[Rfam]
RNA sequence: GUUGACAGCCCAGAGGCCACAGCAGAAGUGCUCAUAAUGCAGCCUAUCAGAUUCCAACAAAUCUGCAAAUUUUGCU
Dot-bracket structure: ..............[[[...((((((((((.......))).]]]...((((((......))))))....)))))))
Numbered sequence: 001g002u003u004g005a006c007a008g009c010c011c012a013g014a015g016g017c018c019a020c021a022g023c024a025g026a027a028g029u030g031c032u033c034a035u036a037a038u039g040c041a042g043c044c045u046a047u048c049a050g051a052u053u054c055c056a057a058c059a060a061a062u063c064u065g066c067a068a069a070u071u072u073u074g075c076u
Stems, first nucleotide, its partner, number of pairs: 015044003021076007028040003048065006
A member of the RNA family "Mammalian CPEB3 ribozyme" from Alligator sinensis, 76 nucleotides long. It scores 42 bits against the family's covariance model. The organism belongs to Alligator, within Eukaryota. Its family is annotated with RNA nuclease activity in the Gene Ontology. The mammalian CPEB3 ribozyme is a self cleaving RNA located in the second intron of the CPEB3 gene which belongs to a family of genes regulating messenger RNA polyadenylation. Pairs were carried over by alignment from the consensus structure, which is taken from published work.